Selenocysteine insertion sequence 1: a 61-nucleotide RNA sequence. For this family Rfam cites "A novel RNA structural motif in the selenocysteine insertion element of eukaryotic selenoprotein mRNAs" (Walczak et al., RNA, 1996). The sequence is in the family's curated seed alignment. About the family: The incorporation of selenocysteine into a protein sequence is directed by an in-frame UGA codon (usually a stop codon) within the coding region of the mRNA. Selenoprotein mRNAs contain a conserved secondary structure in the 3' UTR that is required for the distinction of UGA stop from UGA selenocysteine. The selenocysteine insertion sequence (SECIS) is around 60 nt in length and adopts a hairpin structure which is sufficiently well-defined and conserved to act as a computational screen for selenoprotein genes. It is annotated as a cis-regulatory element.
[Rfam]
RNA sequence: GUCAGAUGAUGACGGCCUGUGCAGAAACCCCCACGUGGGCUGCCAGGUUUGAACCCCUGGC
Numbered sequence: 001g002u003c004a005g006a007u008g009a010u011g012a013c014g015g016c017c018u019g020u021g022c023a024g025a026a027a028c029c030c031c032c033a034c035g036u037g038g039g040c041u042g043c044c045a046g047g048u049u050u051g052a053a054c055c056c057c058u059g060g061c
Base pairs, nucleotide, nucleotide: 001061002060003059004058005057014049015048016047017046018045019044021043022042023041029039030038031037